[Rfam]
RNA sequence: AGUGCUUCAGUGUGAACAUUGAGCACCAUAUUGGUGCAAUUUACGUUAAAGUGCCCUUUUACCGCUCCGUGAAAGCGAUCACAAAGCAUCUCUGCAAUACUUGUUUGC
Numbered sequence: 001a002g003u004g005c006u007u008c009a010g011u012g013u014g015a016a017c018a019u020u021g022a023g024c025a026c027c028a029u030a031u032u033g034g035u036g037c038a039a040u041u042u043a044c045g046u047u048a049a050a051g052u053g054c055c056c057u058u059u060u061a062c063c064g065c066u067c068c069g070u071g072a073a074a075g076c077g078a079u080c081a082c083a084a085a086g087c088a089u090c091u092c093u094g095c096a097a098u099a100c101u102u103g104u105u106u107g108c
Base pairs, nucleotide, nucleotide: 002026003025004024005023006022007021009020010019011018012017027103028102031099035096036095037094038093044086046084047083050079057075058074059073060072063069064068